[Rfam]
RNA: Ribosomal protein L10 leader
RNA sequence: GUUGAAUAGAUUAUUAUUCCGUAGACAGUAGGUGCUUUAGGCGUAACAUGAUACCUACCGAGGAUUCUAAUAAAUGCGAAUUUAUUGGUCUCUUCGUGUGCCUGCGGAGAGACCUUAAUUUUUUUAAUA
Numbered sequence: 001g002u003u004g005a006a007u008a009g010a011u012u013a014u015u016a017u018u019c020c021g022u023a024g025a026c027a028g029u030a031g032g033u034g035c036u037u038u039a040g041g042c043g044u045a046a047c048a049u050g051a052u053a054c055c056u057a058c059c060g061a062g063g064a065u066u067c068u069a070a071u072a073a074a075u076g077c078g079a080a081u082u083u084a085u086u087g088g089u090c091u092c093u094u095c096g097u098g099u100g101c102c103u104g105c106g107g108a109g110a111g112a113c114c115u116u117a118a119u120u121u122u123u124u125u126a127a128u129a
Stems, first nucleotide, its partner, number of pairs: 028058006034042003087114012